[Rfam]
RNA sequence: GAUUUAUAAAGACGAGGGGAGAGAAUAGGCUCUUUGAACCUCGGGCAACCUGUCCCGCAUAAUGCGAUAAGGUGCCAAUACCUACCUAAUGGUGCAAUAAAUGCCCUUGGGACUUAUAAACC
Numbered sequence: 001g002a003u004u005u006a007u008a009a010a011g012a013c014g015a016g017g018g019g020a021g022a023g024a025a026u027a028g029g030c031u032c033u034u035u036g037a038a039c040c041u042c043g044g045g046c047a048a049c050c051u052g053u054c055c056c057g058c059a060u061a062a063u064g065c066g067a068u069a070a071g072g073u074g075c076c077a078a079u080a081c082c083u084a085c086c087u088a089a090u091g092g093u094g095c096a097a098u099a100a101a102u103g104c105c106c107u108u109g110g111g112a113c114u115u116a117u118a119a120a121c122c
Base pairs, nucleotide, nucleotide: 001122003120004119005118006117007116008115013043014042015041016040017039021032022031023030026084027083028082029081044076045075046074047073049072050071051069052068053067054066080114085111086110087109088108089107
This 122-nucleotide RNA from Arcticibacterium luteifluviistationis belongs to the Rfam family "SAM riboswitch aptamer (S box leader)".